[Rfam]
Description: UnaL2 LINE 3' element: a 54-nucleotide sequence from Hemibagrus wyckioides. It scores 59 bits against the family's covariance model.
RNA sequence: AGUUGUAUAAAAUGUAAGUCGCCCUGGAUAAGGGCGUCUGCCAAAUGCCGUAAA
Numbered sequence: 001a002g003u004u005g006u007a008u009a010a011a012a013u014g015u016a017a018g019u020c021g022c023c024c025u026g027g028a029u030a031a032g033g034g035c036g037u038c039u040g041c042c043a044a045a046u047g048c049c050g051u052a053a054a
Stems, first nucleotide, its partner, number of pairs: 013043001014041003020036006
Rfam links the family to the GO term transposition, RNA-mediated. It is annotated as a cis-regulatory element.